[Rfam]
RNA sequence: UACGCCAGCGCGGGAGAGUCCGUCGGACCGGAUCAACCGGGACCGGUGGCGCCGAAGGGGCAAAUCCUCCCCGGAACCUCUCAGGCAAAAGGGACCGCGAUCCUGGC
Numbered sequence: 001u002a003c004g005c006c007a008g009c010g011c012g013g014g015a016g017a018g019u020c021c022g023u024c025g026g027a028c029c030g031g032a033u034c035a036a037c038c039g040g041g042a043c044c045g046g047u048g049g050c051g052c053c054g055a056a057g058g059g060g061c062a063a064a065u066c067c068u069c070c071c072c073g074g075a076a077c078c079u080c081u082c083a084g085g086c087a088a089a090a091g092g093g094a095c096c097g098c099g100a101u102c103c104u105g106g107c
Stems, first nucleotide, its partner, number of pairs: 007101001009099005020049007051086003054082002058080003065073001
Shown here is a 107-nucleotide RNA from Rugosimonospora africana, a member of the family "Glycine riboswitch aptamer". A search with the family's covariance model found it, with a score of 49 bits. NCBI's taxonomy places the organism under Bacteria, Bacillati, Actinomycetes, Micromonosporales, Rugosimonospora.